[Rfam]
RNA sequence: GAGAAGAAUUUGUAAAGCUCAGGAGGGAUAGCACCAUGGGCGAACCGAUCCUAUAUCGUAAUGACUUGAUGAAGAGUUGGUCUUCAUUCUUUGUCGUGCUAUCCAUCCUGAGUUUUAUGAGUUUUUCGU
Numbered sequence: 001g002a003g004a005a006g007a008a009u010u011u012g013u014a015a016a017g018c019u020c021a022g023g024a025g026g027g028a029u030a031g032c033a034c035c036a037u038g039g040g041c042g043a044a045c046c047g048a049u050c051c052u053a054u055a056u057c058g059u060a061a062u063g064a065c066u067u068g069a070u071g072a073a074g075a076g077u078u079g080g081u082c083u084u085c086a087u088u089c090u091u092u093g094u095c096g097u098g099c100u101a102u103c104c105a106u107c108c109u110g111a112g113u114u115u116u117a118u119g120a121g122u123u124u125u126u127c128g129u
Stems, first nucleotide, its partner, number of pairs: 010120001016114009026104009
MIR390 microRNA precursor family: a 129-nucleotide RNA from Actinidia chinensis. A search with the family's covariance model found it, with a score of 86 bits. The organism belongs to Actinidia chinensis, within Eukaryota.